[Rfam]
RNA sequence: AGCGUCAAUCAAAAACUUCACACAUACACCGACACAUACGAUCGGGUGCCCGGGGUUGCAUGCACGGGUUUUCGUAUGAGGGGUGUAUGGAGGCGUAAC
Numbered sequence: 001a002g003c004g005u006c007a008a009u010c011a012a013a014a015a016c017u018u019c020a021c022a023c024a025u026a027c028a029c030c031g032a033c034a035c036a037u038a039c040g041a042u043c044g045g046g047u048g049c050c051c052g053g054g055g056u057u058g059c060a061u062g063c064a065c066g067g068g069u070u071u072u073c074g075u076a077u078g079a080g081g082g083g084u085g086u087a088u089g090g091a092g093g094c095g096u097a098a099c
Base pairs, nucleotide, nucleotide: 023089024088025087026086027085028084029083030082035078036077037076038075039074040073041072048069049068050067051066052065
t44 RNA: a 99-nucleotide RNA from Halorhodospira halochloris.
The organism belongs to Halorhodospira, within Bacteria.
It scores 66 bits against the family's covariance model.